[Rfam]
RNA sequence: CAACCGGACCGGGUAACCGCGGGCGCAAGGACGAAAGGUUGCGCCUGAGGAAAGUCCGAGCUCCAUAGGGCAGGGUGCUGGAUAACGUCCAGUGAGGGUGACCUCAAGGAAAGUGCCACAGAAAAGGAAACGCCGACUGGAUACAGCAAUGCUGGUCCAGGGCAAAGCUGAAAAGGUGCGGUAAGAGCGCACCAGCGGUUAAGUGAUUAACCGGCUUGGUAAACCCCACCCGGAGCAAGACCGAAUAGGAGGGGGCGUCUGCCCGGCAGACGCAAGAAUGGCCCGUUCUUCCCUCGGGUACGGUCGCAUGAGGCGGCAGGUAACUGUCGUCCCAGAUAAAUGGUUACCGCCGACUGCCUCCGCAGUCGGUACAGAACUCGGCUUAUAGGUCCGGUUGGUAA
Numbered sequence: 001c002a003a004c005c006g007g008a009c010c011g012g013g014u015a016a017c018c019g020c021g022g023g024c025g026c027a028a029g030g031a032c033g034a035a036a037g038g039u040u041g042c043g044c045c046u047g048a049g050g051a052a053a054g055u056c057c058g059a060g061c062u063c064c065a066u067a068g069g070g071c072a073g074g075g076u077g078c079u080g081g082a083u084a085a086c087g088u089c090c091a092g093u094g095a096g097g098g099u100g101a102c103c104u105c106a107a108g109g110a111a112a113g114u115g116c117c118a119c120a121g122a123a124a125a126g127g128a129a130a131c132g133c134c135g136a137c138u139g140g141a142u143a144c145a146g147c148a149a150u151g152c153u154g155g156u157c158c159a160g161g162g163c164a165a166a167g168c169u170g171a172a173a174a175g176g177u178g179c180g181g182u183a184a185g186a187g188c189g190c191a192c193c194a195g196c197g198g199u200u201a202a203g204u205g206a207u208u209a210a211c212c213g214g215c216u217u218g219g220u221a222a223a224c225c226c227c228a229c230c231c232g233g234a235g236c237a238a239g240a241c242c243g244a245a246u247a248g249g250a251g252g253g254g255g256c257g258u259c260u261g262c263c264c265g266g267c268a269g270a271c272g273c274a275a276g277a278a279u280g281g282c283c284c285g286u287u288c289u290u291c292c293c294u295c296g297g298g299u300a301c302g303g304u305c306g307c308a309u310g311a312g313g314c315g316g317c318a319g320g321u322a323a324c325u326g327u328c329g330u331c332c333c334a335g336a337u338a339a340a341u342g343g344u345u346a347c348c349g350c351c352g353a354c355u356g357c358c359u360c361c362g363c364a365g366u367c368g369g370u371a372c373a374g375a376a377c378u379c380g381g382c383u384u385a386u387a388g389g390u391c392c393g394g395u396u397g398g399u400a401a
Base pairs, nucleotide, nucleotide: 001397002396003395004394005393006392007391008390009389010388011386012348013347014346015345016344017343018342020047021046022045023044024043025042026041027040028039052384053383054382056381057380058379059378060377061235062234063233064232068284069283070282071281073231074230075229076228077227078092079091080090081089082088093107094105095104096103097102108226109225113224114223115220116219117218132163133162134161137160138159139158140157141156142155175193176192177191178190179189180188195215196213197212198211199210200209201208202207239305240304241303242302249295250294251293252292253291254290275289276288277287278286279285312331313330314329315328316327317326318325319324
The family of this 401-nucleotide RNA from Capillibacterium thermochitinicola is "Bacterial RNase P class A".
By type it is a ribozyme.
Its Rfam clan is "RNaseP clan".
A search with the family's covariance model found it, with a score of 299 bits.
The base pairs follow the family's consensus structure, which is taken from published work.